[Rfam]
This 87-nucleotide RNA sequence from Drosophila albomicans belongs to the Rfam family "Selenocysteine transfer RNA". The organism belongs to Drosophila, within Eukaryota. The match comes from Rfam's covariance-model search (73 bits).
RNA sequence: GCCCCGCUGAGCUUCGGUGGUCCGGGGUGCGGACUUCAAAUCCGUAGUCGACUAAUAAUCGAAGUGGUUCGAUUCCACCUGUGGGGC
Numbered sequence: 001g002c003c004c005c006g007c008u009g010a011g012c013u014u015c016g017g018u019g020g021u022c023c024g025g026g027g028u029g030c031g032g033a034c035u036u037c038a039a040a041u042c043c044g045u046a047g048u049c050g051a052c053u054a055a056u057a058a059u060c061g062a063a064g065u066g067g068u069u070c071g072a073u074u075c076c077a078c079c080u081g082u083g084g085g086g087c
Stems, first nucleotide, its partner, number of pairs: 001087007009079001012027006028046006048062004064078004